Shown here is a 130-nucleotide sequence from Neomoorella humiferrea, a member of the family "c-di-AMP riboswitch aptamer (ydaO/yuaA leader)".
[Rfam]
RNA sequence: CACUUUUUAACACCAAAUUCCCGCGCAGGGCGGGAAGCAGAGAUAAUUUAGGGGUGAAGAGCCUCCUGGCUCCGGGCUAACUCUCGGUCCGAACCCGGCAACUAACCUCGUAGGUGUGGAGAGAGUGAGG
Numbered sequence: 001c002a003c004u005u006u007u008u009a010a011c012a013c014c015a016a017a018u019u020c021c022c023g024c025g026c027a028g029g030g031c032g033g034g035a036a037g038c039a040g041a042g043a044u045a046a047u048u049u050a051g052g053g054g055u056g057a058a059g060a061g062c063c064u065c066c067u068g069g070c071u072c073c074g075g076g077c078u079a080a081c082u083c084u085c086g087g088u089c090c091g092a093a094c095c096c097g098g099c100a101a102c103u104a105a106c107c108u109c110g111u112a113g114g115u116g117u118g119g120a121g122a123g124a125g126u127g128a129g130g
Stems, first nucleotide, its partner, number of pairs: 011116004018027001020025001028111001030109001032107002038051001052096003060071004074090004
Taxonomically the source falls in Neomoorella (Bacteria, Bacillati, Bacillota, Neomoorellaceae).